Shown here is a 72-nucleotide RNA sequence, a member of the family "Hepatitis C virus stem-loop SL2531 and SL2549AU".
Rfam's curators put it in the seed alignment.
RNA sequence: UGUUGGCGGACGCGCGCGUUUGCGCCUGCCUGUGGAUGAUGCUGCUAAUAUCUCAGGUGGAGGCGGCUCUGG
Number, nucleotide and partner (000 for none) at each position: 001u000002g000003u000004u000005g000006g023007c022008g021009g020010a019011c018012g017013c000014g000015c000016g000017c012018g011019u010020u009021u008022g007023c006024g067025c066026c000027u065028g064029c063030c062031u061032g000033u000034g058035g000036a000037u055038g054039a000040u000041g000042c000043u000044g000045c000046u000047a000048a000049u000050a000051u000052c000053u000054c038055a037056g000057g000058u034059g000060g000061a031062g030063g029064c028065g027066g025067c024068u000069c000070u000071g000072g000